[Rfam]
RNA: mir-166 microRNA precursor family
Nucleotides: 163
Base pairs, nucleotide, nucleotide: 002162003161004160006158007157008156009155010154011153012152013151016148018146019145020144021143024140025139026138
Number, partner (000 for none) and nucleotide at each position: 001000u002162u003161u004160g005000a006158g007157g008156g009155g010154a011153a012152u013151g014000u015000u016148g017000g018146c019145u020144g021143g022000c023000c024140c025139g026138a027000u028000g029000c030000c031000c032000c033000a034000a035000c036000u037000a038000g039000a040000u041000c042000u043000a044000u045000g046000g047000u048000u049000u050000a051000a052000u053000c054000u055000c056000u057000g058000a059000u060000c061000a062000a063000a064000a065000a066000a067000a068000u069000u070000u071000u072000c073000u074000u075000u076000g077000g078000g079000u080000u081000u082000u083000a084000u085000u086000u087000u088000u089000c090000a091000g092000a093000u094000c095000a096000a097000a098000g099000u100000u101000g102000a103000g104000a105000u106000c107000a108000u109000g110000a111000u112000c113000a114000a115000u116000c117000a118000u119000u120000g121000a122000u123000c124000a125000u126000a127000g128000g129000u130000u131000a132000g133000u134000g135000a136000c137000c138026u139025c140024g141000g142000a143021c144020c145019a146018g147000g148016c149000u150000u151013c152012a153011u154010u155009c156008c157007c158006c159000c160004c161003a162002a163000u